[Rfam]
RNA sequence: UGCAUCCAGCAGGAAUUGAACCCACAAAUUUUCCAAUUAUGAGUUGAGUGCUUUAACCUUUCAGCCAUGGAU
Numbered sequence: 001u002g003c004a005u006c007c008a009g010c011a012g013g014a015a016u017u018g019a020a021c022c023c024a025c026a027a028a029u030u031u032u033c034c035a036a037u038u039a040u041g042a043g044u045u046g047a048g049u050g051c052u053u054u055a056a057c058c059u060u061u062c063a064g065c066c067a068u069g070g071a072u
Stems, first nucleotide, its partner, number of pairs: 004072004009025001012022002039068003043065006050058001
A member of the RNA family "Plastid-ycf2 5UTR RNA" from Epipogium roseum, 72 nucleotides long. The family has 204 seed sequences and 3,521 matches in Rfam 15.1. On this family, see Richter et al., Plant Commun 2023: "Retrograde signaling in plants: A critical review focusing on the GUN pathway and beyond". Rfam's curators put it in the seed alignment. The family's consensus secondary structure was predicted with LocARNA. It is annotated as a cis-regulatory element. Rfam describes the family as follows. Plastid ycf2 is a non-coding RNA (ncRNA) recognised in plastids. It was found in the prime untranslated region (5UTR) of ycf2 genes, it presents a tRNA-like motif which suggests it can be involved in mRNA maturation, particularly involved in defining the precise 5' end of the transcript.